[Rfam]
RNA sequence: CACCUCUCGCGAGGAGAGCGCUGUGUUCAGCACAGCCGCCGAAGGUGUAUUCCCAAAAACUCUCAGGCACAAGGACUCGCGGGGCGAA
Number, nucleotide and partner (000 for none) at each position: 001c000002a000003c000004c000005u000006c083007u082008c081009g080010c079011g078012a077013g076014g000015a000016g000017a000018g000019c000020g036021c035022u034023g033024u000025g000026u000027u000028c000029a000030g000031c000032a000033c023034a022035g021036c020037c000038g068039c067040c066041g064042a063043a000044g000045g062046u000047g060048u000049a000050u000051u055052c000053c000054c000055a051056a000057a000058a000059a000060c047061u000062c045063u042064c041065a000066g040067g039068c038069a000070c000071a000072a000073g000074g000075a000076c013077u012078c011079g010080c009081g008082g007083g006084g000085c000086g000087a000088a000
RNA: Glycine riboswitch aptamer